[Rfam]
Nucleotides: 112
Stems, first nucleotide, its partner, number of pairs: 011076002014073001015031006058067003095104003
Number, partner (000 for none) and nucleotide at each position: 001000a002000g003000a004000a005000a006000a007000g008000u009000g010000a011076c012075c013000g014073c015031c016030g017029c018028c019027c020026c021000g022000c023000g024000c025000a026020g027019g028018g029017g030016c031015g032000a033000c034000g035000c036000u037000a038000g039000c040000a041000g042000a043000c044000c045000g046000u047000a048000u049000g050000c051000a052000a053000a054000a055000c056000a057000g058067g059066u060065u061000c062000a063000a064000c065060g066059a067058c068000a069000g070000u071000a072000a073014g074000a075012g076011g077000c078000g079000c080000a081000c082000c083000g084000a085000c086000a087000a088000a089000a090000a091000c092000c093000c094000a095104c096103g097102c098000c099000c100000c101000c102097g103096c104095g105000a106000g107000c108000c109000c110000c111000u112000c
Burkholderia sRNA Bp1_Cand684_SIPHT: a 112-nucleotide sequence from Burkholderia vietnamiensis. For this family Rfam cites "Computational discovery and RT-PCR validation of novel Burkholderia conserved and Burkholderia pseudomallei unique sRNAs" (Khoo et al., BMC Genomics, 2012). It is one of the family's seed sequences. It is annotated as a small RNA.